[Rfam]
Nucleotides: 070
Stems, first nucleotide, its partner, number of pairs: 002068004007063001010060002015055004020050003024046006
Number, partner (000 for none) and nucleotide at each position: 001000u002068g003067a004066c005065a006000c007063a008000a009000a010060c011059c012000c013000g014000u015055a016054g017053a018052u019000c020050c021049g022048a023000a024046c025045u026044u027043g028042u029041g030000g031000u032000g033000a034000c035000u036000g037000u038000c039000c040000g041029c042028a043027c044026a045025a046024g047000c048022u049021u050020g051000c052018a053017u054016c055015u056000a057000u058000a059011g060010g061000u062000a063007u064000c065005u066004g067003u068002c069000u070000g